[Rfam]
This 113-nucleotide sequence from Peptoniphilus harei belongs to the Rfam family "FMN riboswitch aptamer (RFN element)".
RNA sequence: UUAAAUCUUCAGGGAAGGGUGCAAAUCCCAACCGGCGGUAAAGUCCGCGAGCGCAAGCCGAAUUGGUGCAAUUCCAAUACCGACAGUAAAGUCUGGAUGAGAGAAUGAUUUAA
Numbered sequence: 001u002u003a004a005a006u007c008u009u010c011a012g013g014g015a016a017g018g019g020u021g022c023a024a025a026u027c028c029c030a031a032c033c034g035g036c037g038g039u040a041a042a043g044u045c046c047g048c049g050a051g052c053g054c055a056a057g058c059c060g061a062a063u064u065g066g067u068g069c070a071a072u073u074c075c076a077a078u079a080c081c082g083a084c085a086g087u088a089a090a091g092u093c094u095g096g097a098u099g100a101g102a103g104a105a106u107g108a109u110u111u112a113a
Stems, first nucleotide, its partner, number of pairs: 003111005008105003017029003031092002033082002035048004043080002051058002062078005084095003
Rfam links the family to the GO term FMN binding. Lineage of the source: Bacteria > Tissierellales > Peptoniphilaceae > Peptoniphilus > Peptoniphilus harei.